[Rfam]
RNA sequence: CCCGUCCUCGACGGGCUGGGAUGUGACCGGUUGACCGGUUGAACCACUAA
Numbered sequence: 001c002c003c004g005u006c007c008u009c010g011a012c013g014g015g016c017u018g019g020g021a022u023g024u025g026a027c028c029g030g031u032u033g034a035c036c037g038g039u040u041g042a043a044c045c046a047c048u049a050a
Base pairs, nucleotide, nucleotide: 001015002014003013004012005011017046018045019044025040026039027038028037029036
RNA: eL15-Euryarchaeota ribosomal protein leader